[Rfam]
RNA sequence: UCAGGUGCUGGGCUCAAACCAUGGGAAGUGCGGGGGACGUAACAACGGCAAUGAUUCCAAUGCAUCAUAAGAUGUUGUGGAUAUGCCUAGGGGUGAAUUGCACAAGCAUAGGGCUUCUCCUGAGUCCGAAUCCGACAGCUAACUUCGCAGGCAUAACAGAGGAGGUAC
Numbered sequence: 001u002c003a004g005g006u007g008c009u010g011g012g013c014u015c016a017a018a019c020c021a022u023g024g025g026a027a028g029u030g031c032g033g034g035g036g037a038c039g040u041a042a043c044a045a046c047g048g049c050a051a052u053g054a055u056u057c058c059a060a061u062g063c064a065u066c067a068u069a070a071g072a073u074g075u076u077g078u079g080g081a082u083a084u085g086c087c088u089a090g091g092g093g094u095g096a097a098u099u100g101c102a103c104a105a106g107c108a109u110a111g112g113g114c115u116u117c118u119c120c121u122g123a124g125u126c127c128g129a130a131u132c133c134g135a136c137a138g139c140u141a142a143c144u145u146c147g148c149a150g151g152c153a154u155a156a157c158a159g160a161g162g163a164g165g166u167a168c
Base pairs, nucleotide, nucleotide: 012152013151014150018029019028030148031147032146033145034144035143040090091133092132093131099108100107101106111127112126113125114124